RNA sequence: UUACUGGCAACGUUUCGUAUUUACCCGUCCACAAACGGUUUGAUCAUGUGAUUGAACACCAAUACGGGUGGGAAAUUCGGUGAUACUCUUCAUUCUGAGCUUCUGAAAUAGUGAAGUGAACCGACUAACUACUCCUGAGAGUUUCCCGAGCGUGAUAAGUGACACGCUGGGCAAUGCCAUCAGAAAAAUCAACAGAUUCCUUCUGUAUGGGAGGCAUUGCGAAUGAUUGGUCCGUUCAUUGGGAACGGGCUAUUGAGUGCAAUAUACGAACUUAAGAUCUUCUUAAGCACCCGAUACCGAUCAUCGUUGUUAGUAA
Numbered sequence: 001u002u003a004c005u006g007g008c009a010a011c012g013u014u015u016c017g018u019a020u021u022u023a024c025c026c027g028u029c030c031a032c033a034a035a036c037g038g039u040u041u042g043a044u045c046a047u048g049u050g051a052u053u054g055a056a057c058a059c060c061a062a063u064a065c066g067g068g069u070g071g072g073a074a075a076u077u078c079g080g081u082g083a084u085a086c087u088c089u090u091c092a093u094u095c096u097g098a099g100c101u102u103c104u105g106a107a108a109u110a111g112u113g114a115a116g117u118g119a120a121c122c123g124a125c126u127a128a129c130u131a132c133u134c135c136u137g138a139g140a141g142u143u144u145c146c147c148g149a150g151c152g153u154g155a156u157a158a159g160u161g162a163c164a165c166g167c168u169g170g171g172c173a174a175u176g177c178c179a180u181c182a183g184a185a186a187a188a189u190c191a192a193c194a195g196a197u198u199c200c201u202u203c204u205g206u207a208u209g210g211g212a213g214g215c216a217u218u219g220c221g222a223a224u225g226a227u228u229g230g231u232c233c234g235u236u237c238a239u240u241g242g243g244a245a246c247g248g249g250c251u252a253u254u255g256a257g258u259g260c261a262a263u264a265u266a267c268g269a270a271c272u273u274a275a276g277a278u279c280u281u282c283u284u285a286a287g288c289a290c291c292c293g294a295u296a297c298c299g300a301u302c303a304u305c306g307u308u309g310u311u312a313g314u315a316a
Stems, first nucleotide, its partner, number of pairs: 001316004007310003013269002017265002023069005038057008078299005091221001131142004149168005172219007192206003271287007